The family of this 115-nucleotide RNA sequence from Lachnospiraceae bacterium NE2001 is "FMN riboswitch aptamer (RFN element)". A search with the family's covariance model found it, with a score of 115 bits.
RNA sequence: AAUAUAUCUCAGGGCAGGGUGUGAUUCCCUACCGGCGGUAUAGCCCGCGAGCCUUUUUGGCAGAUCUUGUGUGAUUCAAGAGCCGACAGUAAAGUCUGGACGAAAGAGAUGAAUA
Dot-bracket structure: ..(.((((((......(((.......))).[[((((((....[[))))..(((.....)))...(((((.......)))))]])).(((....]]))).......)))))).)..